[Rfam]
RNA sequence: CUCUUCCUGGGCGGAAACGCCCAGGCCUCAUUGAAGC
Numbered sequence: 001c002u003c004u005u006c007c008u009g010g011g012c013g014g015a016a017a018c019g020c021c022c023a024g025g026c027c028u029c030a031u032u033g034a035a036g037c
Stems, first nucleotide, its partner, number of pairs: 006025007
Dot-bracket structure: .....(((((((......)))))))............